[Rfam]
Notes
This 244-nucleotide RNA belongs to the Rfam family "HNH endonuclease-associated RNA and ORF (HEARO) RNA". On this family, see Weinberg et al., Nature 2009: "Exceptional structured noncoding RNAs revealed by bacterial metagenome analysis".
RNA sequence: GUCAACUACUCCUGGCUCACGCAGGGGGCCUGUUCCGUGAGGAACAGCGUAAGAGUUGAUUAGAGAGCUUUAAAAAAUAUAGUGAAAAACAUGAAAGAAAAGCAGAAGUUAGACAAAAGAGAUACAUACACACCCGCGGAUGCUCCACAAGUCCGUGGCAACUGUGAUCAUGCAUUAAACAGAGAGGAAACUCUCAGUGUGCAUGGUUUAAAAACUCCUUCUAACAACCCCGAUGUGGACCUAC
Numbered sequence: 001g002u003c004a005a006c007u008a009c010u011c012c013u014g015g016c017u018c019a020c021g022c023a024g025g026g027g028g029c030c031u032g033u034u035c036c037g038u039g040a041g042g043a044a045c046a047g048c049g050u051a052a053g054a055g056u057u058g059a060u061u062a063g064a065g066a067g068c069u070u071u072a073a074a075a076a077a078u079a080u081a082g083u084g085a086a087a088a089a090c091a092u093g094a095a096a097g098a099a100a101a102g103c104a105g106a107a108g109u110u111a112g113a114c115a116a117a118a119g120a121g122a123u124a125c126a127u128a129c130a131c132a133c134c135c136g137c138g139g140a141u142g143c144u145c146c147a148c149a150a151g152u153c154c155g156u157g158g159c160a161a162c163u164g165u166g167a168u169c170a171u172g173c174a175u176u177a178a179a180c181a182g183a184g185a186g187g188a189a190a191c192u193c194u195c196a197g198u199g200u201g202c203a204u205g206g207u208u209u210a211a212a213a214a215c216u217c218c219u220u221c222u223a224a225c226a227a228c229c230c231c232g233a234u235g236u237g238g239a240c241c242u243a244c
Stems, first nucleotide, its partner, number of pairs: 001060007010028002012025002015022002030047007063231001065229001067103004108225006120219002130165002134158008144239006167207009179198002182195005